[Rfam]
RNA sequence: AUCGUUCAAUUUAAGAAUUUUUCUUAAAUCGGAAGUAAGUCAUUGACUGAAGGAACGCAUG
Numbered sequence: 001a002u003c004g005u006u007c008a009a010u011u012u013a014a015g016a017a018u019u020u021u022u023c024u025u026a027a028a029u030c031g032g033a034a035g036u037a038a039g040u041c042a043u044u045g046a047c048u049g050a051a052g053g054a055a056c057g058c059a060u061g
Stems, first nucleotide, its partner, number of pairs: 003057005009029009032058001038048003